A member of the RNA family "small nucleolar RNA snoR135" from Apostasia shenzhenica, 141 nucleotides long.
It scores 86 bits against the family's covariance model.
Its family is annotated with nucleolus and RNA processing in the Gene Ontology.
The family has 6 seed sequences and 837 matches in Rfam 15.1.
RNA sequence: GCUGCAGGAUAGUGUGUGUCGGCUCUUGCUCAUCGUGUGCAAUCUCGGCCGAAAGUGUUUCCUGCAAAAUCAAUGAUAAUGAGAAUGGGCAGUUGAGUUUCACUUCCAGUGGAAAUCUCAACAAUCAUUUUCUUUAUAUUU
Numbered sequence: 001g002c003u004g005c006a007g008g009a010u011a012g013u014g015u016g017u018g019u020c021g022g023c024u025c026u027u028g029c030u031c032a033u034c035g036u037g038u039g040c041a042a043u044c045u046c047g048g049c050c051g052a053a054a055g056u057g058u059u060u061c062c063u064g065c066a067a068a069a070u071c072a073a074u075g076a077u078a079a080u081g082a083g084a085a086u087g088g089g090c091a092g093u094u095g096a097g098u099u100u101c102a103c104u105u106c107c108a109g110u111g112g113a114a115a116u117c118u119c120a121a122c123a124a125u126c127a128u129u130u131u132c133u134u135u136a137u138a139u140u141u
Stems, first nucleotide, its partner, number of pairs: 004065005009059001015041005078135002081132008092122004